The record is a 101-nucleotide sequence from Nyctereutes procyonoides, which matches "mir-8904 microRNA precursor family" in Rfam.
The base pairs follow the family's consensus structure, which was predicted with RNAalifold.
The match comes from Rfam's covariance-model search (100 bits).

RNA sequence: CCAGGGGCUCCCGGGGACACUAAAAGACACCUGCGCCCCAGGGAGAGUGCGCUGAGCUCCCUGAAGGGCUGCAGCGUGCACGGCUGGACCCGGGAGCAGCU
Numbered sequence: 001c002c003a004g005g006g007g008c009u010c011c012c013g014g015g016g017a018c019a020c021u022a023a024a025a026g027a028c029a030c031c032u033g034c035g036c037c038c039c040a041g042g043g044a045g046a047g048u049g050c051g052c053u054g055a056g057c058u059c060c061c062u063g064a065a066g067g068g069c070u071g072c073a074g075c076g077u078g079c080a081c082g083g084c085u086g087g088a089c090c091c092g093g094g095a096g097c098a099g100c101u
Stems, first nucleotide, its partner, number of pairs: 007097006014090002018086002020083002027077002031074004035069004040062006048054002